[Rfam]
RNA sequence: CCUUUGCUAUCAAAGGCGUCGCCGGUGCGUGAGAGUUAGGCUCACGGUGCGAGAUAGUGAAAAUCCCCGGAG
Number, nucleotide and partner (000 for none) at each position: 001c016002c015003u014004u013005u012006g011007c000008u000009a000010u000011c006012a005013a004014a003015g002016g001017c000018g000019u000020c000021g000022c070023c069024g068025g067026u000027g000028c046029g045030u044031g043032a042033g041034a000035g000036u000037u000038a000039g000040g000041c033042u032043c031044a030045c029046g028047g000048u000049g000050c000051g000052a000053g000054a000055u000056a000057g000058u000059g000060a000061a000062a000063a000064u000065c000066c000067c025068c024069g023070g022071a000072g000
RNA: RAGATH-16 RNA